Rfam assigns this 97-nucleotide sequence from Colocasia esculenta to the family "MIR535 microRNA precursor family". Gene Ontology terms of the family: miRNA-mediated post-transcriptional gene silencing and RISC complex. The family has 20 seed sequences and 544 matches in Rfam 15.1. A search with the family's covariance model found it, with a score of 65 bits. The literature on the family includes a 2010 paper in Nucleic Acids Res by Zeng et al., "Conservation and divergence of microRNAs and their functions in Euphorbiaceous plants".
[Rfam]
RNA sequence: CAAAGUGGAUGACACCGAGAGGGAGCACGCUAGUACACAGCCACGGUCGCUUUGCAUGGGUGAGGACAGGCGUGCUCUCUCUCGUUGUCAAGCUGCA
Numbered sequence: 001c002a003a004a005g006u007g008g009a010u011g012a013c014a015c016c017g018a019g020a021g022g023g024a025g026c027a028c029g030c031u032a033g034u035a036c037a038c039a040g041c042c043a044c045g046g047u048c049g050c051u052u053u054g055c056a057u058g059g060g061u062g063a064g065g066a067c068a069g070g071c072g073u074g075c076u077c078u079c080u081c082u083c084g085u086u087g088u089c090a091a092g093c094u095g096c097a
Base pairs, nucleotide, nucleotide: 010090011089012088013087014086016084017083020080021079023077025075026074027073028072029071030070031069033067034066
Dot-bracket structure: .........(((((.((..((.(.(((((((.((...............................)).))))))).).))..)).))))).......